[Rfam]
RNA sequence: CGCGUUUUUGCCAAGGCGGAGCUCGACCGCCACAUCAAGAAGUGAGGCGCUUCAUCGACGUGCAGCGCGAGCACUUCGGGGUCGAGUUGAUCUGCAACGUACUGGAUGUCGCCCCG
Numbered sequence: 001c002g003c004g005u006u007u008u009u010g011c012c013a014a015g016g017c018g019g020a021g022c023u024c025g026a027c028c029g030c031c032a033c034a035u036c037a038a039g040a041a042g043u044g045a046g047g048c049g050c051u052u053c054a055u056c057g058a059c060g061u062g063c064a065g066c067g068c069g070a071g072c073a074c075u076u077c078g079g080g081g082u083c084g085a086g087u088u089g090a091u092c093u094g095c096a097a098c099g100u101a102c103u104g105g106a107u108g109u110c111g112c113c114c115c116g
Stems, first nucleotide, its partner, number of pairs: 015031005077116005088111002091108001093106001095104002
The family of this 116-nucleotide RNA sequence from Pelomonas sp. Root1444 is "ALIL pseudoknot".
Rfam 15.1 lists 2,146 matches to the family in 1,098 species.
Taxonomically the source falls in Roseateles (Bacteria, Pseudomonadati, Burkholderiales, Sphaerotilaceae).
It is annotated as a cis-regulatory element.
The family's consensus secondary structure is taken from published work.
It scores 93 bits against the family's covariance model.